[Rfam]
RNA sequence: UAUAAGUCGCGUUAAGGAUAGAAGUGAAAAUCCUUUUUUUGCUGCCAUAUAUGGCAAAAAAAGAUUGUAAUGUAUAGCCUGUUUAAAC
Numbered sequence: 001u002a003u004a005a006g007u008c009g010c011g012u013u014a015a016g017g018a019u020a021g022a023a024g025u026g027a028a029a030a031u032c033c034u035u036u037u038u039u040u041g042c043u044g045c046c047a048u049a050u051a052u053g054g055c056a057a058a059a060a061a062a063g064a065u066u067g068u069a070a071u072g073u074a075u076a077g078c079c080u081g082u083u084u085a086a087a088c
Base pairs, nucleotide, nucleotide: 015080016079017078019076020075024071025070029066030065031064032063035061036060037059038058039057040056041055042054043053044052
A member of the RNA family "Flavo-1 RNA" from Lutibacter sp. B1, 88 nucleotides long.
A search with the family's covariance model found it, with a score of 62 bits.
Rfam classes the family as a small RNA.